[Rfam]
RNA sequence: AUGAACCUGGCUGGAGAGUUCCGGGACCGAGUCCCGGACGCCGAAGGAGCAAGUACCCACAAACUCUCAGGCACCAGGACAGUCAGGGUCGG
Numbered sequence: 001a002u003g004a005a006c007c008u009g010g011c012u013g014g015a016g017a018g019u020u021c022c023g024g025g026a027c028c029g030a031g032u033c034c035c036g037g038a039c040g041c042c043g044a045a046g047g048a049g050c051a052a053g054u055a056c057c058c059a060c061a062a063a064c065u066c067u068c069a070g071g072c073a074c075c076a077g078g079a080c081a082g083u084c085a086g087g088g089u090c091g092g
Stems, first nucleotide, its partner, number of pairs: 006087008020038004040072003043068002047066003053060002
Shown here is a 92-nucleotide RNA from Rhodococcus jostii, a member of the family "Glycine riboswitch aptamer". A search with the family's covariance model found it, with a score of 73 bits. Its family is annotated with glycine biosynthetic process in the Gene Ontology. NCBI's taxonomy places the organism under Bacteria, Mycobacteriales, Nocardiaceae, Rhodococcus, Rhodococcus jostii.